This 74-nucleotide RNA sequence from uncultured Eubacterium sp. belongs to the Rfam family "HDV ribozyme from F. prausnitzii". Taxonomically the source falls in Eubacterium (Bacteria, Bacillati, Clostridia, Eubacteriaceae). Rfam 15.1 lists 3,803 matches to the family in 91 species. Gene Ontology term of the family: catalytic activity.
RNA sequence: GCUGCUCUUAAUAAUCACACACCUCUCCGUGGUGAGCAGUAGGCAACAAUCUUAUGAUCGGCUGAGAUGUGAAG
Numbered sequence: 001g002c003u004g005c006u007c008u009u010a011a012u013a014a015u016c017a018c019a020c021a022c023c024u025c026u027c028c029g030u031g032g033u034g035a036g037c038a039g040u041a042g043g044c045a046a047c048a049a050u051c052u053u054a055u056g057a058u059c060g061g062c063u064g065a066g067a068u069g070u071g072a073a074g
Stems, first nucleotide, its partner, number of pairs: 001040007021033003047060001049058003